Background: Shown here is an 82-nucleotide sequence from Tribolium castaneum, a member of the family "mir-3804 microRNA precursor family". Rfam's curators put it in the seed alignment.
[Rfam]
RNA sequence: UCAGCUCAUUGCACACAACAAUGUCCACAUUCUUGCGAUUUCAUACGUCACUGGAAUGUUCCAUAAGUGUGCGAAAUCAGCG
Numbered sequence: 001u002c003a004g005c006u007c008a009u010u011g012c013a014c015a016c017a018a019c020a021a022u023g024u025c026c027a028c029a030u031u032c033u034u035g036c037g038a039u040u041u042c043a044u045a046c047g048u049c050a051c052u053g054g055a056a057u058g059u060u061c062c063a064u065a066a067g068u069g070u071g072c073g074a075a076a077u078c079a080g081c082g
Stems, first nucleotide, its partner, number of pairs: 005080002009074008021064003027059007035051001037049002
Lineage of the source: Eukaryota > Metazoa > Aparaglossata > Coleoptera > Tribolium.